Rfam assigns this 104-nucleotide RNA to the family "RT-5 RNA". It is annotated as a small RNA.
RNA sequence: AAACAUCUGCAGUGGGAUUUCGUAUAUUACGUGUUAUAGUCUGGCAGGUGGCUGUAAUAUAUAUGAUCUUGUCGUAAUCGAUAAAUCGAUUCUCAAUUUGUUCU
Numbered sequence: 001a002a003a004c005a006u007c008u009g010c011a012g013u014g015g016g017a018u019u020u021c022g023u024a025u026a027u028u029a030c031g032u033g034u035u036a037u038a039g040u041c042u043g044g045c046a047g048g049u050g051g052c053u054g055u056a057a058u059a060u061a062u063a064u065g066a067u068c069u070u071g072u073c074g075u076a077a078u079c080g081a082u083a084a085a086u087c088g089a090u091u092c093u094c095a096a097u098u099u100g101u102u103c104u
Stems, first nucleotide, its partner, number of pairs: 005049006014070003018066002022062008038053004077090005
Pairs were carried over by alignment from the consensus structure, which is taken from published work.